[Rfam]
RNA sequence: GGAGGAAGGCCCUCCGGCAGGGACUGGUCAGGCGGACCUGCCAAACAACCUUCUGCUGCUGUAGCCAAAAGCUAUGGUAGCGAGCGACGAAGGAAAAGUCCAUAAAAAAAAUGGGCAUG
Numbered sequence: 001g002g003a004g005g006a007a008g009g010c011c012c013u014c015c016g017g018c019a020g021g022g023a024c025u026g027g028u029c030a031g032g033c034g035g036a037c038c039u040g041c042c043a044a045a046c047a048a049c050c051u052u053c054u055g056c057u058g059c060u061g062u063a064g065c066c067a068a069a070a071g072c073u074a075u076g077g078u079a080g081c082g083a084g085c086g087a088c089g090a091a092g093g094a095a096a097a098g099u100c101c102a103u104a105a106a107a108a109a110a111a112u113g114g115g116c117a118u119g
Stems, first nucleotide, its partner, number of pairs: 001015005016042006024035003046119002049093005054087001055081002058078003062074004098116006

Rfam assigns this 119-nucleotide sequence from Syntrophobotulus glycolicus to the family "Group II catalytic intron D1-D4-2". For this family Rfam cites "The ins and outs of group II introns" (Bonen and Vogel, Trends Genet, 2001). Pairs were carried over by alignment from the consensus structure. About the family: Group II introns are found in rRNA, tRNA and mRNA of organelles in fungi, plants and protists, and also in mRNA in bacteria. Lineage of the source: Bacteria > Bacillota > Clostridia > Desulfitobacteriaceae > Syntrophobotulus glycolicus. The match comes from Rfam's covariance-model search (97 bits).